[Rfam]
RNA sequence: GGGCAUUCAGAAGGUUUGCAAUCUGGGCUACGAACAGAGAACUUGGUUUCUCACAUACUUGCCCAGGGGAAAGUCCCCGGACCCGUGGCAGAAAGUGCCCUGGCUAAACCCAGCCUCGGCUUGCGCUCCCCUGCAGAAGCCAAGACGUUCAUGUGAACAGAGCUUAGGGAUCGCUUGUCGAAUUUGUCAGCGUUCAGAGGUAUGCAAACAUCAUGCACGAAACGCUUCAACAGAACGGGGCUCAUUCUCCGAAUGCA
Numbered sequence: 001g002g003g004c005a006u007u008c009a010g011a012a013g014g015u016u017u018g019c020a021a022u023c024u025g026g027g028c029u030a031c032g033a034a035c036a037g038a039g040a041a042c043u044u045g046g047u048u049u050c051u052c053a054c055a056u057a058c059u060u061g062c063c064c065a066g067g068g069g070a071a072a073g074u075c076c077c078c079g080g081a082c083c084c085g086u087g088g089c090a091g092a093a094a095g096u097g098c099c100c101u102g103g104c105u106a107a108a109c110c111c112a113g114c115c116u117c118g119g120c121u122u123g124c125g126c127u128c129c130c131c132u133g134c135a136g137a138a139g140c141c142a143a144g145a146c147g148u149u150c151a152u153g154u155g156a157a158c159a160g161a162g163c164u165u166a167g168g169g170a171u172c173g174c175u176u177g178u179c180g181a182a183u184u185u186g187u188c189a190g191c192g193u194u195c196a197g198a199g200g201u202a203u204g205c206a207a208a209c210a211u212c213a214u215g216c217a218c219g220a221a222a223c224g225c226u227u228c229a230a231c232a233g234a235a236c237g238g239g240g241c242u243c244a245u246u247c248u249c250c251g252a253a254u255g256c257a
Stems, first nucleotide, its partner, number of pairs: 003256006010249002014209006022067007037052005072242002075240004087099004100113004116181003120177001123174003130169001137165004147158004213227001215225002
The family of this 257-nucleotide sequence from Xiphophorus maculatus is "RNase MRP". The family's consensus secondary structure is taken from published work. Rfam links the family to the GO terms rRNA processing, ribonuclease MRP complex and ribonuclease MRP activity. Lineage of the source: Eukaryota > Chordata > Teleostei > Osteoglossocephalai > Xiphophorus.